Shown here is a 104-nucleotide RNA sequence from Glycine max, a member of the family "MIR390 microRNA precursor family".
Pairs were carried over by alignment from the consensus structure, which was predicted with WAR.
Its family is annotated with miRNA-mediated post-transcriptional gene silencing and RISC complex in the Gene Ontology.
[Rfam]
RNA sequence: UGGAAGAAUCUGUAAAGCUCAGGAGGGAUAGCGCCAUGGAUGAUCUUCUCUUCACUCUUGAUCUUCUCUUGCGCUAUCCAUCCUGAGUUUCAUGGCUUCUAUCC
Numbered sequence: 001u002g003g004a005a006g007a008a009u010c011u012g013u014a015a016a017g018c019u020c021a022g023g024a025g026g027g028a029u030a031g032c033g034c035c036a037u038g039g040a041u042g043a044u045c046u047u048c049u050c051u052u053c054a055c056u057c058u059u060g061a062u063c064u065u066c067u068c069u070u071g072c073g074c075u076a077u078c079c080a081u082c083c084u085g086a087g088u089u090u091c092a093u094g095g096c097u098u099c100u101a102u103c104c
Stems, first nucleotide, its partner, number of pairs: 010095001016089009026079009

On this family, see Gustafson et al., Nucleic Acids Res 2005: "ASRP: the Arabidopsis Small RNA Project Database".
A search with the family's covariance model found it, with a score of 94 bits.